[Rfam]
RNA sequence: GUUUUGGCGUAGUCGAGUGGUUACUUCGUAAUUGUAAUGGCACAAACUUCAAACUGGAAAAAUUGAAACUUCGCGGGCUCGAUUCCCGCAGAAACCACUGACGCUUUCCAGCAUUUUU
Numbered sequence: 001g002u003u004u005u006g007g008c009g010u011a012g013u014c015g016a017g018u019g020g021u022u023a024c025u026u027c028g029u030a031a032u033u034g035u036a037a038u039g040g041c042a043c044a045a046a047c048u049u050c051a052a053a054c055u056g057g058a059a060a061a062a063u064u065g066a067a068a069c070u071u072c073g074c075g076g077g078c079u080c081g082a083u084u085c086c087c088g089c090a091g092a093a094a095c096c097a098c099u100g101a102c103g104c105u106u107u108c109c110a111g112c113a114u115u116u117u118u
Stems, first nucleotide, its partner, number of pairs: 002113001004111004012102004017098004026082003
A member of the RNA family "Vault RNA" from Mytilus coruscus, 118 nucleotides long. A reference for the family is Stadler et al. (2009), "Evolution of Vault RNAs", Mol Biol Evol.